This 86-nucleotide sequence from Pantherophis guttatus belongs to the Rfam family "Small nucleolar RNA SNORD60". The family is grouped with related families in Rfam's "SNORD60 clan". The family's consensus secondary structure was predicted with PFOLD. The source organism's lineage runs through Eukaryota, Lepidosauria, Episquamata, Colubridae and Pantherophis. The family has 22 seed sequences and 825 matches in Rfam 15.1.

[Rfam]
RNA sequence: AGCCAAUGAUGAUGAACUCUUUAAUUUUCUGACACCUCGUAUGAAAACUGCUUGCAGUUGGUGAUUUUAAGCAUGAUCUGAGGCUU
Numbered sequence: 001a002g003c004c005a006a007u008g009a010u011g012a013u014g015a016a017c018u019c020u021u022u023a024a025u026u027u028u029c030u031g032a033c034a035c036c037u038c039g040u041a042u043g044a045a046a047a048c049u050g051c052u053u054g055c056a057g058u059u060g061g062u063g064a065u066u067u068u069a070a071g072c073a074u075g076a077u078c079u080g081a082g083g084c085u086u
Base pairs, nucleotide, nucleotide: 001085002084003083004082047058048057049056050055
Annotation
The match comes from Rfam's covariance-model search (67 bits). Its family is annotated with nucleolus and RNA processing in the Gene Ontology.